[Rfam]
RNA sequence: GUGCGCCGCCCGUUCACAACGGAUCGUCCGGCACGUUCCUGCCGGUGAGCGCUAAGGAAAC
Numbered sequence: 001g002u003g004c005g006c007c008g009c010c011c012g013u014u015c016a017c018a019a020c021g022g023a024u025c026g027u028c029c030g031g032c033a034c035g036u037u038c039c040u041g042c043c044g045g046u047g048a049g050c051g052c053u054a055a056g057g058a059a060a061c
Stems, first nucleotide, its partner, number of pairs: 011051006028045006
Description
This 61-nucleotide sequence from Dermacoccus nishinomiyaensis belongs to the Rfam family "msiK RNA". Lineage of the source: Bacteria > Actinomycetota > Actinomycetes > Micrococcales > Dermacoccus. A search with the family's covariance model found it, with a score of 53 bits. It is annotated as a cis-regulatory element.